[Rfam]
RNA sequence: ACGAGGGCGACCGAGUGUGGGGAGGAAGCGUGGAGCGUAAAUUGCGAGCCGAUGGAGAAGAACCGUAUAGAAGGCGCUGCCGAGCAGGGCGAGCGGGCAACGAACCGCAAAGCUCUCGUGACCAAGGCGAAGCGGCGUAAAUGCGGCGGCUGUGCGAUGAAGGAGUGCGUUC
Numbered sequence: 001a002c003g004a005g006g007g008c009g010a011c012c013g014a015g016u017g018u019g020g021g022g023a024g025g026a027a028g029c030g031u032g033g034a035g036c037g038u039a040a041a042u043u044g045c046g047a048g049c050c051g052a053u054g055g056a057g058a059a060g061a062a063c064c065g066u067a068u069a070g071a072a073g074g075c076g077c078u079g080c081c082g083a084g085c086a087g088g089g090c091g092a093g094c095g096g097g098c099a100a101c102g103a104a105c106c107g108c109a110a111a112g113c114u115c116u117c118g119u120g121a122c123c124a125a126g127g128c129g130a131a132g133c134g135g136c137g138u139a140a141a142u143g144c145g146g147c148g149g150c151u152g153u154g155c156g157a158u159g160a161a162g163g164a165g166u167g168c169g170u171u172c
Stems, first nucleotide, its partner, number of pairs: 001016002005012002028172001030170003036163001041158006047151005063146006074138003078134003087115004093108004

The record is a 172-nucleotide RNA sequence from Trinickia terrae, which matches "Group II catalytic intron D1-D4-3" in Rfam. Gene Ontology term of the family: Group II intron splicing. NCBI's taxonomy places the organism under Bacteria, Pseudomonadota, Betaproteobacteria, Burkholderiales, Trinickia. About the family: Group II introns are found in rRNA, tRNA and mRNA of organelles in fungi, plants and protists, and also in mRNA in bacteria. The base pairs follow the family's consensus structure. A search with the family's covariance model found it, with a score of 97 bits.